[Rfam]
RNA sequence: UAGAAAUGAUGAAAUGGAGGUCAUGUGUGGUAAUGUGUGUAUAUUUGCUGGAGGGUAGGGGGGAGAAUGGAGGCUAUUUUAAAUUAAAAGGUGUGUGUGUGUGUGUGUGUGUGUGCAUGCAGAAGUUAUAUAAUGAUGCAGAUUGUGAGCACUGAAAGAAACUGCUGAUUCCGGAGUGCAUCUGAGGCACUGUUGCUAAAUUAUGGGUUUUUUCCUGCAAAGUUGCCAAUGAUUAGAACCCGAAAUAGGCUCACAGUUUGCAUCUAGGCAGUCUUAACCUCUAACAGGUUCAUUUUGUCAUACAAAGGAACUUGUGAUCUGAUCUAA
Numbered sequence: 001u002a003g004a005a006a007u008g009a010u011g012a013a014a015u016g017g018a019g020g021u022c023a024u025g026u027g028u029g030g031u032a033a034u035g036u037g038u039g040u041a042u043a044u045u046u047g048c049u050g051g052a053g054g055g056u057a058g059g060g061g062g063g064a065g066a067a068u069g070g071a072g073g074c075u076a077u078u079u080u081a082a083a084u085u086a087a088a089a090g091g092u093g094u095g096u097g098u099g100u101g102u103g104u105g106u107g108u109g110u111g112u113g114u115g116c117a118u119g120c121a122g123a124a125g126u127u128a129u130a131u132a133a134u135g136a137u138g139c140a141g142a143u144u145g146u147g148a149g150c151a152c153u154g155a156a157a158g159a160a161a162c163u164g165c166u167g168a169u170u171c172c173g174g175a176g177u178g179c180a181u182c183u184g185a186g187g188c189a190c191u192g193u194u195g196c197u198a199a200a201u202u203a204u205g206g207g208u209u210u211u212u213u214c215c216u217g218c219a220a221a222g223u224u225g226c227c228a229a230u231g232a233u234u235a236g237a238a239c240c241c242g243a244a245a246u247a248g249g250c251u252c253a254c255a256g257u258u259u260g261c262a263u264c265u266a267g268g269c270a271g272u273c274u275u276a277a278c279c280u281c282u283a284a285c286a287g288g289u290u291c292a293u294u295u296u297g298u299c300a301u302a303c304a305a306a307g308g309a310a311c312u313u314g315u316g317a318u319c320u321g322a323u324c325u326a327a
Stems, first nucleotide, its partner, number of pairs: 001326004191222001193220004198211003202207001
This 327-nucleotide RNA sequence from Varanus komodoensis belongs to the Rfam family "Small Cajal body-specific RNA 7".
The match comes from Rfam's covariance-model search (150 bits).
Pairs were carried over by alignment from the consensus structure.
The family has 18 seed sequences and 570 matches in Rfam 15.1.
Taxonomically the source falls in Varanus (Eukaryota, Amniota, Sauropsida, Episquamata).